[Rfam]
RNA: tRNA
Nucleotides: 072
Base pairs, nucleotide, nucleotide: 001071002070003069004068005067006066007065010025011024012023013022027043028042029041030040031039048064049063050062051061052060
Number, partner (000 for none) and nucleotide at each position: 001071g002070u003069c004068u005067c006066g007065u008000u009000a010025g011024u012023u013022a014000a015000a016000u017000g018000g019000a020000u021000a022013u023012a024011a025010c026000a027043u028042g029041g030040u031039c032000c033000u034000c035000c036000u037000a038000a039031g040030a041029c042028u043027a044000a045000a046000u047000u048064a049063u050062a051061g052060g053000u054000u055000c056000g057000a058000u059000u060052c061051c062050u063049a064048u065007a066006c067005g068004a069003g070002a071001c072000g